Source information:
The record is a 185-nucleotide RNA from Gammaproteobacteria bacterium ESL0073, which matches "Pseudomonas sRNA P27" in Rfam. Pairs were carried over by alignment from the consensus structure, which was predicted with WAR. A search with the family's covariance model found it, with a score of 116 bits. It is annotated as a small RNA.
RNA sequence: CGGGUUUACUCCUGGAUGUUUCCAUUAAACUUAAUGGCUAAAACCAUUAAGCGUUUCGGUGUCUGAUUCAUUGGAAUCGGGAGCACCAUCUGCGUAGGCCUAAAAGAUUAAGGUUAUCCACCUACGGUCUUGGAUAGCCCCCGCCAGGCAGGGACCCCAAUCUUGUUGCUCUUUUAGAAGAGCAG
Numbered sequence: 001c002g003g004g005u006u007u008a009c010u011c012c013u014g015g016a017u018g019u020u021u022c023c024a025u026u027a028a029a030c031u032u033a034a035u036g037g038c039u040a041a042a043a044c045c046a047u048u049a050a051g052c053g054u055u056u057c058g059g060u061g062u063c064u065g066a067u068u069c070a071u072u073g074g075a076a077u078c079g080g081g082a083g084c085a086c087c088a089u090c091u092g093c094g095u096a097g098g099c100c101u102a103a104a105a106g107a108u109u110a111a112g113g114u115u116a117u118c119c120a121c122c123u124a125c126g127g128u129c130u131u132g133g134a135u136a137g138c139c140c141c142c143g144c145c146a147g148g149c150a151g152g153g154a155c156c157c158c159a160a161u162c163u164u165g166u167u168g169c170u171c172u173u174u175u176a177g178a179a180g181a182g183c184a185g
Base pairs, nucleotide, nucleotide: 002157003156004155005154006153007152011148012147013146014145023053031050032049033048034047035046036045037044058087059086060085061084062083063080064079065078066077067076068075069074092144093143094142097139098138099137101136106135108133109132110131111130112129113128114127115126167184168183169182170181171180172179